[Rfam]
RNA sequence: GGAUGUGAGGGCGAUCUGGCUGCGACAUCUGUCACCCCAUUGAUCGCCAGGGUUGAUUCGGCUGAUCUGGCUGGCUAGGCGGGUGUCCCCCUCCUCCCUCACCGAUCCAUGUGCGUCCCUCCCGAAGCUGCGCGCUCGGUCGAAGAGGACGACUUUCCCCCAAGAGGAGAGGACCGGUCUUCGGUCAAGGGUAUACGAGUAGCUGCGCUCCCCUGCUAGAACCUCCAAACAAGCUCUCAAUAAAAUUUGGUGAAAAAAGGGAAGGAGUUAAGAAACACACACACAUACACCUCAUAGACAGACAACAGAG
Numbered sequence: 001g002g003a004u005g006u007g008a009g010g011g012c013g014a015u016c017u018g019g020c021u022g023c024g025a026c027a028u029c030u031g032u033c034a035c036c037c038c039a040u041u042g043a044u045c046g047c048c049a050g051g052g053u054u055g056a057u058u059c060g061g062c063u064g065a066u067c068u069g070g071c072u073g074g075c076u077a078g079g080c081g082g083g084u085g086u087c088c089c090c091c092u093c094c095u096c097c098c099u100c101a102c103c104g105a106u107c108c109a110u111g112u113g114c115g116u117c118c119c120u121c122c123c124g125a126a127g128c129u130g131c132g133c134g135c136u137c138g139g140u141c142g143a144a145g146a147g148g149a150c151g152a153c154u155u156u157c158c159c160c161c162a163a164g165a166g167g168a169g170a171g172g173a174c175c176g177g178u179c180u181u182c183g184g185u186c187a188a189g190g191g192u193a194u195a196c197g198a199g200u201a202g203c204u205g206c207g208c209u210c211c212c213c214u215g216c217u218a219g220a221a222c223c224u225c226c227a228a229a230c231a232a233g234c235u236c237u238c239a240a241u242a243a244a245a246u247u248u249g250g251u252g253a254a255a256a257a258a259g260g261g262a263a264g265g266a267g268u269u270a271a272g273a274a275a276c277a278c279a280c281a282c283a284c285a286u287a288c289a290c291c292u293c294a295u296a297g298a299c300a301g302a303c304a305a306c307a308g309a310g
Base pairs, nucleotide, nucleotide: 001108002107003106005102006101007100008099009098010097011096013093014092018090019089024087025086026085027084028083029082030081031080032079033078035074036073037070038069039068042067043066044065045064046062047061048060116172117171118167119166120165121164122139123138124137125136127135128134140162142160147158148157149156202268203267204266208264209263211261212260213259214258223252225250226249232248233247

A member of the RNA family "7SK RNA" from Pipistrellus kuhlii, 310 nucleotides long. Rfam classes the family as a non-coding RNA gene. The source organism's lineage runs through Eukaryota, Opisthokonta, Eumetazoa, Mammalia and Pipistrellus. From the family's description: 7SK was discovered as an abundant small nuclear RNA in the mid-70s but a possible function has only recently been suggested. The family has 45 seed sequences and 49,373 matches in Rfam 15.1.